A member of the RNA family "Selenocysteine transfer RNA" from Pyrinomonas methylaliphatogenes, 97 nucleotides long.
[Rfam]
RNA sequence: GGAGGCGCAUCCGUUCUGGUGAACGGCGCGGUCUUCAAAACCGUCGGCGAGCUCGCCGAUGCGCGAGCUCGGGUAGGUUCGAUUCCUACACGCCUCC
Numbered sequence: 001g002g003a004g005g006c007g008c009a010u011c012c013g014u015u016c017u018g019g020u021g022a023a024c025g026g027c028g029c030g031g032u033c034u035u036c037a038a039a040a041c042c043g044u045c046g047g048c049g050a051g052c053u054c055g056c057c058g059a060u061g062c063g064c065g066a067g068c069u070c071g072g073g074u075a076g077g078u079u080c081g082a083u084u085c086c087u088a089c090a091c092g093c094c095u096c097c
Stems, first nucleotide, its partner, number of pairs: 001097007011026006027046001028044005048071008074088004